This 96-nucleotide RNA from Kalanchoe fedtschenkoi belongs to the Rfam family "Small nucleolar RNA R64/Z200 family".
Taxonomically the source falls in Kalanchoe (Eukaryota, Streptophyta, Embryophyta, Magnoliopsida).
The family's consensus secondary structure was predicted with PFOLD.
A search with the family's covariance model found it, with a score of 76 bits.

RNA sequence: GGAAAGCUUUGAUGAAUUAUGAUUAAAUUCACAUGUCAGACUUCAGAGAUUUUUCACAAAAUCAAUGAGAAUGACAAUCAUAUAUUCUGAGCUUCA
Numbered sequence: 001g002g003a004a005a006g007c008u009u010u011g012a013u014g015a016a017u018u019a020u021g022a023u024u025a026a027a028u029u030c031a032c033a034u035g036u037c038a039g040a041c042u043u044c045a046g047a048g049a050u051u052u053u054u055c056a057c058a059a060a061a062u063c064a065a066u067g068a069g070a071a072u073g074a075c076a077a078u079c080a081u082a083u084a085u086u087c088u089g090a091g092c093u094u095c096a
Stems, first nucleotide, its partner, number of pairs: 004094004048063004